[Rfam]
RNA sequence: GAGUCAACCUUAUGUGCGAGUGCCCGGGCGUAAAACCCCAGCGCGGAAUGAAAGUGAACGUAGGUGAGAGCUUCGGCGCAUCACCGACCGAUCCUGAUGUCCUCGGACGGAUUUGAGUGAGAGCAUAUAGGGUUGGACCCGAAAGAAGAUGAACUAUGCGUGUGUAGGGUGAAGCCAGAGGAAACUCUGGUGGAGGCUCGCAGCGGUUCUGACGUGCAAAUCGAUCGUCAAACAUGCGCAUGGGGGCGAAAGACUAAUCGAAUCUUCUGGUAGCUGGUU
Numbered sequence: 001g002a003g004u005c006a007a008c009c010u011u012a013u014g015u016g017c018g019a020g021u022g023c024c025c026g027g028g029c030g031u032a033a034a035a036c037c038c039c040a041g042c043g044c045g046g047a048a049u050g051a052a053a054g055u056g057a058a059c060g061u062a063g064g065u066g067a068g069a070g071c072u073u074c075g076g077c078g079c080a081u082c083a084c085c086g087a088c089c090g091a092u093c094c095u096g097a098u099g100u101c102c103u104c105g106g107a108c109g110g111a112u113u114u115g116a117g118u119g120a121g122a123g124c125a126u127a128u129a130g131g132g133u134u135g136g137a138c139c140c141g142a143a144a145g146a147a148g149a150u151g152a153a154c155u156a157u158g159c160g161u162g163u164g165u166a167g168g169g170u171g172a173a174g175c176c177a178g179a180g181g182a183a184a185c186u187c188u189g190g191u192g193g194a195g196g197c198u199c200g201c202a203g204c205g206g207u208u209c210u211g212a213c214g215u216g217c218a219a220a221u222c223g224a225u226c227g228u229c230a231a232a233c234a235u236g237c238g239c240a241u242g243g244g245g246g247c248g249a250a251a252g253a254c255u256a257a258u259c260g261a262a263u264c265u266u267c268u269g270g271u272a273g274c275u276g277g278u279u
Stems, first nucleotide, its partner, number of pairs: 005135013020044003026038003048055002063085005070077002087118002089115003092111003098105002138277002141274001145267006154243011165231001167199004174191007203228004208224002211222002245255002
RNA: Eukaryotic large subunit ribosomal RNA, nucleotides 652 to 930